[Rfam]
RNA sequence: CUUCGCGGUGUCGUAGCGGUUCGGGUCAUCGCCGAACUCUGCGAGCACCCGGGCGCCGAGGAUCAUCCCCAGUCCUGGCAGG
Numbered sequence: 001c002u003u004c005g006c007g008g009u010g011u012c013g014u015a016g017c018g019g020u021u022c023g024g025g026u027c028a029u030c031g032c033c034g035a036a037c038u039c040u041g042c043g044a045g046c047a048c049c050c051g052g053g054c055g056c057c058g059a060g061g062a063u064c065a066u067c068c069c070c071a072g073u074c075c076u077g078g079c080a081g082g
Stems, first nucleotide, its partner, number of pairs: 009043003013039001018038007055079003059076005
The family of this 82-nucleotide sequence from Egicoccus halophilus is "Actinobacteria sRNA Ms_AS-4".
A reference for the family is Li et al. (2013), "Identification of small RNAs in Mycobacterium smegmatis using heterologous Hfq", RNA.
It scores 83 bits against the family's covariance model.
Rfam 15.1 lists 207 matches to the family in 131 species.
The pairing is the family consensus, mapped onto this sequence.